[Rfam]
RNA sequence: AAAGUCCCGUCCGAGGAGUUGUCCGUACGCCUUGGUAGCAUGAGGAAGCGGCGUCGUGGUAACGCGGGGUCGUAAGUUUUCACACAGCAAAAGAGCAGGCCGUAACGCAAGUGAACCUACAUGUAGCCUCGUAAACGAGCUGGAGGAGCCGACCCUGUGGUCAGAAGGGGAAGGCCGUUGGAUGGGUGCUGAAAUAACGGAAGUGGCACCCAUUGACUUCCGGGGUAGCAGGGUC
Numbered sequence: 001a002a003a004g005u006c007c008c009g010u011c012c013g014a015g016g017a018g019u020u021g022u023c024c025g026u027a028c029g030c031c032u033u034g035g036u037a038g039c040a041u042g043a044g045g046a047a048g049c050g051g052c053g054u055c056g057u058g059g060u061a062a063c064g065c066g067g068g069g070u071c072g073u074a075a076g077u078u079u080u081c082a083c084a085c086a087g088c089a090a091a092a093g094a095g096c097a098g099g100c101c102g103u104a105a106c107g108c109a110a111g112u113g114a115a116c117c118u119a120c121a122u123g124u125a126g127c128c129u130c131g132u133a134a135a136c137g138a139g140c141u142g143g144a145g146g147a148g149c150c151g152a153c154c155c156u157g158u159g160g161u162c163a164g165a166a167g168g169g170g171a172a173g174g175c176c177g178u179u180g181g182a183u184g185g186g187u188g189c190u191g192a193a194a195u196a197a198c199g200g201a202a203g204u205g206g207c208a209c210c211c212a213u214u215g216a217c218u219u220c221c222g223g224g225g226u227a228g229c230a231g232g233g234u235c
Stems, first nucleotide, its partner, number of pairs: 012034005019025001022202001036090001038088002042083001044081002046078002048073005054067005123229001124227001126226006142220004148175003153169004181214010